[Rfam]
RNA sequence: UUCCACACAGUUCUCUGGUCUCUCCUUCCGAAAGGAAGCGUAGUGGAUCAGAACUUAACCCUAAGCAAUUG
Numbered sequence: 001u002u003c004c005a006c007a008c009a010g011u012u013c014u015c016u017g018g019u020c021u022c023u024c025c026u027u028c029c030g031a032a033a034g035g036a037a038g039c040g041u042a043g044u045g046g047a048u049c050a051g052a053a054c055u056u057a058a059c060c061c062u063a064a065g066c067a068a069u070u071g
Base pairs, nucleotide, nucleotide: 009055010054011053015051016050017049018048019047020046021045
RNA: Ascomycota telomerase RNA, nucleotides 13 to 83